[Rfam]
RNA sequence: AACCACACUAUCGAUGAAUAGAUUUACCAGCCGUGAGAUGACGUGGUUGUUCCAUAUAGGAUGAGGACGUGGCAUCCUAUUAAUUUCGUGUGAUGGCUGGUAAUAGGAUGCCAUAUCCUCGCCCUAGGUGAAACAGUCACGUUAUCUCGCGGGUGAAUCCAUUCAUCGAUAGCGUGGUU
Numbered sequence: 001a002a003c004c005a006c007a008c009u010a011u012c013g014a015u016g017a018a019u020a021g022a023u024u025u026a027c028c029a030g031c032c033g034u035g036a037g038a039u040g041a042c043g044u045g046g047u048u049g050u051u052c053c054a055u056a057u058a059g060g061a062u063g064a065g066g067a068c069g070u071g072g073c074a075u076c077c078u079a080u081u082a083a084u085u086u087c088g089u090g091u092g093a094u095g096g097c098u099g100g101u102a103a104u105a106g107g108a109u110g111c112c113a114u115a116u117c118c119u120c121g122c123c124c125u126a127g128g129u130g131a132a133a134c135a136g137u138c139a140c141g142u143u144a145u146c147u148c149g150c151g152g153g154u155g156a157a158u159c160c161a162u163u164c165a166u167c168g169a170u171a172g173c174g175u176g177g178u179u
Base pairs, nucleotide, nucleotide: 001179002178003177004176005175006174009171010170011169012168013167014166015165017163018162019161021159022158023157024156025155026154027153028152033150034149035148036147038145039144040143041142042141044139045138046137047136048135049134050133051132054129055128057126058125060123066117067116072111073110074109075108076107077106078105079104080103081102082101